[Rfam]
RNA sequence: UGCCGAGGUUUUCAUCGGAAGUUAACUGCAGCUGGUUUCUUUAGAAUUCGGCAGUUAACUGUCGAGGGGUAU
Numbered sequence: 001u002g003c004c005g006a007g008g009u010u011u012u013c014a015u016c017g018g019a020a021g022u023u024a025a026c027u028g029c030a031g032c033u034g035g036u037u038u039c040u041u042u043a044g045a046a047u048u049c050g051g052c053a054g055u056u057a058a059c060u061g062u063c064g065a066g067g068g069g070u071a072u
Base pairs, nucleotide, nucleotide: 012068013067015065016064017063018062020060021059022058023057024056025055026054027053028052029051
Dot-bracket structure: ...........((.((((.((((((((((.....................)))))))))).)))).))....
Annotation:
This 72-nucleotide RNA sequence from Medicago truncatula belongs to the Rfam family "MIR2629 microRNA precursor family". Pairs were carried over by alignment from the consensus structure, which was predicted with RNAalifold. Taxonomically the source falls in Medicago (Eukaryota, Tracheophyta, Pentapetalae, Hologalegina).